The record is an 83-nucleotide sequence from Oikopleura dioica, which matches "mir-1 microRNA precursor family" in Rfam. Its family is annotated with RISC complex and miRNA-mediated post-transcriptional gene silencing in the Gene Ontology. The source organism's lineage runs through Eukaryota, Metazoa, Eumetazoa, Bilateria and Oikopleura. This family represents the microRNA (miRNA) mir-1 family. miRNAs are transcribed as ~70nt precursors (modelled here) and subsequently processed by the Dicer enzyme to give a ~22nt product. In this case the mature sequence comes from the 3' arm of the precursor. For this family Rfam cites "An extensive class of small RNAs in Caenorhabditis elegans" (Lee and Ambros, Science, 2001).

RNA sequence: CCACGGUUUACGUACUCAUUUACAUUCUUUAAGACGCUGGUUUUAAUUUCCUUAUGGAAUGUAAAGAAGUAUGUGAAAGUGGG
Numbered sequence: 001c002c003a004c005g006g007u008u009u010a011c012g013u014a015c016u017c018a019u020u021u022a023c024a025u026u027c028u029u030u031a032a033g034a035c036g037c038u039g040g041u042u043u044u045a046a047u048u049u050c051c052u053u054a055u056g057g058a059a060u061g062u063a064a065a066g067a068a069g070u071a072u073g074u075g076a077a078a079g080u081g082g083g
Stems, first nucleotide, its partner, number of pairs: 007077010019065007027057002030054004